[Rfam]
Shown here is an 83-nucleotide RNA from Rhodoplanes elegans, a member of the family "Bradyrhizobiaceae sRNA BjrC68". It is annotated as a small RNA. The match comes from Rfam's covariance-model search (49 bits). The source organism's lineage runs through Bacteria, Pseudomonadota, Alphaproteobacteria, Nitrobacteraceae and Rhodoplanes.
RNA sequence: GGCCCGAUACGGGAGGAGCGGAGACCCGGCACCGCUCCUUCCGCUGGGAGGCCCCGACCUUGUGUCGGGGCCUCUUUUUUUGG
Numbered sequence: 001g002g003c004c005c006g007a008u009a010c011g012g013g014a015g016g017a018g019c020g021g022a023g024a025c026c027c028g029g030c031a032c033c034g035c036u037c038c039u040u041c042c043g044c045u046g047g048g049a050g051g052c053c054c055c056g057a058c059c060u061u062g063u064g065u066c067g068g069g070g071c072c073u074c075u076u077u078u079u080u081u082g083g
Stems, first nucleotide, its partner, number of pairs: 010043009048074008057065002
Dot-bracket structure: .........(((((((((................)))))))))....((((((((.((.....)).)))))))).........